[Rfam]
RNA sequence: AUUGGUCCUCGGUGGUGGCUUCCGGAAUAAAUCCGUGAGCUUCGAUCGAAGAUCCAU
Numbered sequence: 001a002u003u004g005g006u007c008c009u010c011g012g013u014g015g016u017g018g019c020u021u022c023c024g025g026a027a028u029a030a031a032u033c034c035g036u037g038a039g040c041u042u043c044g045a046u047c048g049a050a051g052a053u054c055c056a057u
Base pairs, nucleotide, nucleotide: 001057002056004054005053006052007051009049010048011047012046013045017041018040019039020038021037023035024034025033026032

Rfam assigns this 57-nucleotide sequence to the family "Actino-pnp RNA". Rfam classes the family as a cis-regulatory element. The sequence is in the family's curated seed alignment.